[Rfam]
RNA sequence: GGUAUUGUUUACCCCAUUUGAAAGGCCCCGGAACCUUCCAAAUACCCGCGGACCGGAACAUCCGCCCAGUAAACAAAAA
Number, nucleotide and partner (000 for none) at each position: 001g000002g000003u000004a000005u000006u075007g074008u073009u072010u071011a070012c069013c000014c000015c000016a043017u042018u041019u040020g039021a000022a037023a036024g035025g034026c000027c000028c000029c000030g000031g000032a000033a000034c025035c024036u023037u022038c000039c020040a019041a018042a017043u016044a000045c000046c000047c000048g000049c000050g000051g000052a000053c000054c000055g000056g000057a000058a000059c000060a000061u000062c000063c000064g000065c000066c000067c000068a000069g012070u011071a010072a009073a008074c007075a006076a000077a000078a000079a000
RNA: Ribosomal protein L13 leader
Organism: Streptococcus suis